This 45-nucleotide sequence from Lentivirus humimdef2 belongs to the Rfam family "ribosomal frameshift site". Rfam classes the family as a frameshift element. The literature on the family includes a 1992 paper in Adv Virus Res by Hatfield et al., "Translational suppression in retroviral gene expression".

[Rfam]
RNA sequence: UUUGGCCCCUGGGGAAAGAAGCCUCGCAACUUCCCUGUAGCCCAA
Dot-bracket structure: .(.((....(((((((.(..((...))..))))))))...)).).